The family of this 33-nucleotide RNA sequence is "DUF805b RNA". The family's consensus secondary structure is taken from published work.

[Rfam]
RNA sequence: AUUGCGGAUGCCGAAAAGCAUAUAGAGUAGGCU
Numbered sequence: 001a002u003u004g005c006g007g008a009u010g011c012c013g014a015a016a017a018g019c020a021u022a023u024a025g026a027g028u029a030g031g032c033u
Stems, first nucleotide, its partner, number of pairs: 003020003010032003
Dot-bracket structure: ..(((....[[[.....))).........]]].
By type it is a cis-regulatory element.